[Rfam]
RNA: ZMP/ZTP riboswitch aptamer (pfl RNA motif)
RNA sequence: GUAAGCUUCCAAGACUGGCGGACAUAUGGGUUUAACCAUAAGGGAUUGGAAGAGUUCAAACGUCGACCGCCUGGGCAGUAUAA
Numbered sequence: 001g002u003a004a005g006c007u008u009c010c011a012a013g014a015c016u017g018g019c020g021g022a023c024a025u026a027u028g029g030g031u032u033u034a035a036c037c038a039u040a041a042g043g044g045a046u047u048g049g050a051a052g053a054g055u056u057c058a059a060a061c062g063u064c065g066a067c068c069g070c071c072u073g074g075g076c077a078g079u080a081u082a083a
Stems, first nucleotide, its partner, number of pairs: 003055001006052007015043002017071005026039004062076003